[Rfam]
RNA sequence: UGGUAGAUGCACCCUGAUUAUCUGCCCCUGGUUUCCCACUGGGGGCUUUUUCA
Numbered sequence: 001u002g003g004u005a006g007a008u009g010c011a012c013c014c015u016g017a018u019u020a021u022c023u024g025c026c027c028c029u030g031g032u033u034u035c036c037c038a039c040u041g042g043g044g045g046c047u048u049u050u051u052c053a
Stems, first nucleotide, its partner, number of pairs: 002013003025045008
This 53-nucleotide sequence from Synechococcales cyanobacterium C42_A2020_086 belongs to the Rfam family "Nitrogen stress-induced RNA 1". The source organism's lineage runs through Bacteria, Bacillati, Cyanobacteriota, Cyanophyceae and Synechococcales. It is annotated as a small RNA. Rfam 15.1 lists 962 matches to the family in 163 species. A search with the family's covariance model found it, with a score of 52 bits.